[Rfam]
Nucleotides: 089
Stems, first nucleotide, its partner, number of pairs: 001089009
Number, partner (000 for none) and nucleotide at each position: 001089a002088u003087g004086g005085u006084g007083g008082u009081u010000a011000a012000u013000g014000a015000u016000g017000c018000a019000g020000c021000u022000c023000u024000u025000u026000u027000u028000u029000c030000c031000c032000c033000g034000u035000c036000a037000u038000a039000u040000c041000g042000a043000c044000c045000g046000u047000g048000g049000u050000g051000a052000u053000u054000c055000a056000u057000c058000u059000g060000c061000u062000u063000a064000u065000u066000a067000g068000c069000c070000a071000g072000u073000c074000u075000c076000u077000c078000u079000g080000a081009a082008a083007c084006c085005a086004c087003c088002a089001u
Shown here is an 89-nucleotide RNA sequence from Bagarius yarrelli, a member of the family "Small nucleolar SNORD12/SNORD106".
The base pairs follow the family's consensus structure, which was predicted with RNAalifold.
Gene Ontology terms of the family: RNA processing and nucleolus.
The source organism's lineage runs through Eukaryota, Otomorpha, Otophysi, Siluriformes and Bagarius.
Rfam classes the family as a C/D-box small nucleolar RNA.
A search with the family's covariance model found it, with a score of 67 bits.